[Rfam]
RNA sequence: GAGUGUUAUGGCUCUUUUAGAAUUUGUCUAGCAGGUUUUCCUGUCUUUACUGGGAAGUCCUA
Numbered sequence: 001g002a003g004u005g006u007u008a009u010g011g012c013u014c015u016u017u018u019a020g021a022a023u024u025u026g027u028c029u030a031g032c033a034g035g036u037u038u039u040c041c042u043g044u045c046u047u048u049a050c051u052g053g054g055a056a057g058u059c060c061u062a
Stems, first nucleotide, its partner, number of pairs: 034059008043050002
Shown here is a 62-nucleotide RNA sequence from Tupaia belangeri, a member of the family "U7 small nuclear RNA".